This 84-nucleotide RNA sequence from Bombyx mori belongs to the Rfam family "mir-2807 microRNA precursor family".
Gene Ontology terms of the family: miRNA-mediated post-transcriptional gene silencing and RISC complex.
A search with the family's covariance model found it, with a score of 73 bits.
On this family, see Liu et al., BMC Genomics 2010: "MicroRNAs of Bombyx mori identified by Solexa sequencing".
NCBI's taxonomy places the organism under Eukaryota, Dicondylia, Neolepidoptera, Heteroneura, Bombyx.
[Rfam]
RNA sequence: UUAACUCAAAUUUGUAUGGAGUUGAAACGUUUGCCUACGUUUGCCGCUAGGGGUGCUGCUCCAACUGCAUAAAAAUUUGAGAAC
Numbered sequence: 001u002u003a004a005c006u007c008a009a010a011u012u013u014g015u016a017u018g019g020a021g022u023u024g025a026a027a028c029g030u031u032u033g034c035c036u037a038c039g040u041u042u043g044c045c046g047c048u049a050g051g052g053g054u055g056c057u058g059c060u061c062c063a064a065c066u067g068c069a070u071a072a073a074a075a076u077u078u079g080a081g082a083a084c
Stems, first nucleotide, its partner, number of pairs: 008078006015071002018068001020066005026060001028058002034052003039047002